RNA sequence: CAAUGGCUGGAGCCCUUUAAACCUGGUCCAGUUGGUACCAGGGGGUCCCCCGGUACUGACUGGGCCAGGUUAAAAGGGCUCCAGCCAUUG
Numbered sequence: 001c002a003a004u005g006g007c008u009g010g011a012g013c014c015c016u017u018u019a020a021a022c023c024u025g026g027u028c029c030a031g032u033u034g035g036u037a038c039c040a041g042g043g044g045g046u047c048c049c050c051c052g053g054u055a056c057u058g059a060c061u062g063g064g065c066c067a068g069g070u071u072a073a074a075a076g077g078g079c080u081c082c083a084g085c086c087a088u089u090g
Base pairs, nucleotide, nucleotide: 003089005086006085007084008083009082010081012079013078014077015076016075017074018073022069023068024067025066026065027064028063029062030061031060032059033058034057035056036055037054038053039052

Overview: Rfam assigns this 90-nucleotide RNA sequence from Phrynocephalus forsythii to the family "mir-130 microRNA precursor family". The family has 9 seed sequences and 2,580 matches in Rfam 15.1. A reference for the family is Houbaviy et al. (2003), "Embryonic stem cell-specific MicroRNAs", Dev Cell.